[Rfam]
RNA sequence: UAGAGGAAGGCCGUCAAACCGUUACCAUUACUGAGUUUAGUAAUGGUAAGGGUUCUAUGGCCCUCGCUCAA
Numbered sequence: 001u002a003g004a005g006g007a008a009g010g011c012c013g014u015c016a017a018a019c020c021g022u023u024a025c026c027a028u029u030a031c032u033g034a035g036u037u038u039a040g041u042a043a044u045g046g047u048a049a050g051g052g053u054u055c056u057a058u059g060g061c062c063c064u065c066g067c068u069c070a071a
Stems, first nucleotide, its partner, number of pairs: 007064001009062001011060003017054004022049012
Dot-bracket structure: ......(.(.(((...((((.((((((((((((....)))))))))))).))))...))).).).......
A member of the RNA family "mir-451 microRNA precursor family" from Echeneis naucrates, 71 nucleotides long.
It scores 70 bits against the family's covariance model.
Lineage of the source: Eukaryota > Actinopteri > Neopterygii > Osteoglossocephalai > Echeneis.
A reference for the family is Yang et al. (2010), "Conserved vertebrate mir-451 provides a platform for Dicer-independent, Ago2-mediated microRNA biogenesis", Proc Natl Acad Sci U S A.